[Rfam]
Nucleotides: 224
Stems, first nucleotide, its partner, number of pairs: 007098002015093004026082006036072003047069006102142007144155003172184005189221004200217005
Number, partner (000 for none) and nucleotide at each position: 001000u002000u003000a004000c005000u006000u007098a008097c009000u010000u011000u012000g013000a014000u015093a016092a017091g018090g019000a020000g021000u022000a023000g024000u025000a026082g027081u028080a029079u030078a031077a032000u033000g034000g035000c036072u037071a038070c039000u040000u041000u042000a043000g044000a045000g046000a047069g048068c049067u050066g051065u052064c053000g054000g055000u056000u057000g058000g059000u060000g061000a062000g063000a064052g065051a066050c067049a068048g069047u070038g071037u072036a073000g074000a075000c076000c077031u078030u079029a080028u081027a082026u083000g084000a085000a086000c087000u088000c089000g090018c091017c092016u093015u094000g095000g096000a097008g098007u099000a100000u101000u102142g103141a104140u105139u106138g107137a108136u109000g110000a111000a112000c113000c114000u115000c116000c117000c118000c119000u120000u121000u122000u123000u124000u125000a126000g127000a128000g129000a130000g131000a132000u133000u134000u135000a136108g137107u138106c139105g140104a141103u142102c143000a144155c145154g146153g147000g148000c149000a150000a151000g152000c153146c154145c155144g156000u157000u158000a159000u160000u161000a162000g163000c164000u165000c166000a167000a168000a169000g170000u171000g172184a173183g174182g175181c176180u177000u178000u179000a180176a181175g182174c183173c184172u185000a186000a187000u188000u189221a190220g191219a192218g193000u194000g195000g196000u197000a198000c199000c200217g201216c202215g203214g204213a205000a206000g207000u208000u209000g210000u211000c212000u213204u214203u215202c216201g217200u218192c219191u220190c221189u222000u223000a224000u